[Rfam]
RNA sequence: GAGAUGAAAUUAGCAUUUGGACAUGUGAUUUCAUGUUGAUUUCAUUUCAUG
Numbered sequence: 001g002a003g004a005u006g007a008a009a010u011u012a013g014c015a016u017u018u019g020g021a022c023a024u025g026u027g028a029u030u031u032c033a034u035g036u037u038g039a040u041u042u043c044a045u046u047u048c049a050u051g
Stems, first nucleotide, its partner, number of pairs: 001048016017028003
RNA: MIR1886 microRNA precursor family